[Rfam]
RNA sequence: CAGCUGUGCAGGGGGCACAAAGCGAAUUAUUCUUUCGCCUUUUACUAAAGAAUACCGUGUGCUUGCUGCAGAUAGCAGCAUAAUCAAAUUUUUUGAGGGUAUUUCCUGCAUACGGAGAGC
Numbered sequence: 001c002a003g004c005u006g007u008g009c010a011g012g013g014g015g016c017a018c019a020a021a022g023c024g025a026a027u028u029a030u031u032c033u034u035u036c037g038c039c040u041u042u043u044a045c046u047a048a049a050g051a052a053u054a055c056c057g058u059g060u061g062c063u064u065g066c067u068g069c070a071g072a073u074a075g076c077a078g079c080a081u082a083a084u085c086a087a088a089u090u091u092u093u094u095g096a097g098g099g100u101a102u103u104u105c106c107u108g109c110a111u112a113c114g115g116a117g118a119g120c
Base pairs, nucleotide, nucleotide: 003079004078005077006076009068010067011066013064014063015062016061017060018059019058028054029053030052031051032050033049034048035047097120102118103117104116105115106114
RNA: U5 spliceosomal RNA